[Rfam]
RNA sequence: UACCCCGGCCUAAUCUGUCAAGGGGAGGAGGAGAUAUAAUGAAAUACCUUUUUGAUUUUGUUUUUGCAAUCAAGCCAUUUGCAGAGGUAACUGCACACUACAUCUGCAAGUGGCUUGAUUGCAAAAUUGCCAAAAAAGACAGUAAGCCUACCCGUUAAUUCUAUAAUAUAGAAACGUAAAAAAACCCCAUCAGCCUGCACGCUGAUGGGGUUUGGUGAUAUAAU
Number, nucleotide and partner (000 for none) at each position: 001u000002a000003c024004c023005c022006c000007g000008g000009c000010c017011u000012a000013a000014u000015c000016u000017g010018u000019c000020a000021a000022g005023g004024g003025g000026a000027g000028g000029a000030g164031g000032a162033g161034a160035u000036a000037u000038a000039a000040u000041g059042a058043a057044a056045u054046a053047c000048c000049u000050u000051u000052u000053u046054g045055a000056u044057u043058u042059u041060g000061u000062u000063u000064u000065u000066g000067c000068a000069a000070u000071c000072a000073a156074g155075c154076c000077a000078u000079u106080u000081g104082c000083a000084g101085a000086g099087g098088u097089a000090a000091c000092u000093g000094c000095a000096c000097a088098c087099u086100a000101c084102a000103u000104c081105u000106g079107c000108a000109a000110g000111u000112g148113g147114c146115u145116u144117g143118a000119u142120u141121g140122c000123a000124a000125a000126a000127u136128u135129g000130c000131c000132a000133a000134a000135a128136a127137a000138g000139a000140c121141a120142g119143u117144a116145a115146g114147c113148c112149u000150a000151c000152c000153c000154g075155u074156u073157a000158a000159u000160u034161c033162u032163a000164u030165a000166a221167u220168a219169u000170a000171g000172a000173a000174a000175c217176g000177u000178a000179a213180a212181a000182a000183a000184a211185c210186c209187c208188c207189a206190u205191c204192a203193g202194c201195c000196u000197g000198c000199a000200c000201g194202c193203u192204g191205a190206u189207g188208g187209g186210g185211u184212u180213u179214g000215g000216u000217g175218a000219u168220a167221u166222a000223a000224u000